[Rfam]
RNA: SAM-I/IV (S-adenosyl methionine) riboswitch aptamer
Organism: Enhydrobacter aerosaccus
RNA sequence: GCGCAGCAUCAAGAGUUGGGCCGACGCCCAGCGCCAACCUGCUUCCCGAGCAAGGUGGCUCUCUCCUGACGGAGAGGAUGUGGCCGGACCAGGCAACGAAACGGGUCAAG
Numbered sequence: 001g002c003g004c005a006g007c008a009u010c011a012a013g014a015g016u017u018g019g020g021c022c023g024a025c026g027c028c029c030a031g032c033g034c035c036a037a038c039c040u041g042c043u044u045c046c047c048g049a050g051c052a053a054g055g056u057g058g059c060u061c062u063c064u065c066c067u068g069a070c071g072g073a074g075a076g077g078a079u080g081u082g083g084c085c086g087g088a089c090c091a092g093g094c095a096a097c098g099a100a101a102c103g104g105g106u107c108a109a110g
Stems, first nucleotide, its partner, number of pairs: 006081005015032001017030005033059003038055003041051003046105002083094003